[Rfam]
RNA sequence: ACACGGGAAGGAGGUGGUUCGAAGAAUGAGUAAUUCCAGGACACGUGAGGUGGCUGUCCGCUAGCGCCACCGCUGCAGGUGGUAUCCGCCCGCGCGAGGCGCCGAGCGAAUACCAGGCAGUCACCCGACCCCCGAGCCCCCGGUCUUGUCCGACCGGGACCCGCGCAGGUUCCGAACCCGCCGGGUACGGCUCGGGGGUCGUUCCAU
Numbered sequence: 001a002c003a004c005g006g007g008a009a010g011g012a013g014g015u016g017g018u019u020c021g022a023a024g025a026a027u028g029a030g031u032a033a034u035u036c037c038a039g040g041a042c043a044c045g046u047g048a049g050g051u052g053g054c055u056g057u058c059c060g061c062u063a064g065c066g067c068c069a070c071c072g073c074u075g076c077a078g079g080u081g082g083u084a085u086c087c088g089c090c091c092g093c094g095c096g097a098g099g100c101g102c103c104g105a106g107c108g109a110a111u112a113c114c115a116g117g118c119a120g121u122c123a124c125c126c127g128a129c130c131c132c133c134g135a136g137c138c139c140c141c142g143g144u145c146u147u148g149u150c151c152g153a154c155c156g157g158g159a160c161c162c163g164c165g166c167a168g169g170u171u172c173c174g175a176a177c178c179c180g181c182c183g184g185g186u187a188c189g190g191c192u193c194g195g196g197g198g199u200c201g202u203u204c205c206a207u
Base pairs, nucleotide, nucleotide: 013058014057015056016055017054018053059108060107061106062104064102065101066100067099068098071094072093073092126201127200128199129198130197131196132195133194134193135192136191137190138189139158140157141156142155143154144153
RNA: Actinobacteria sRNA Ms_IGR-5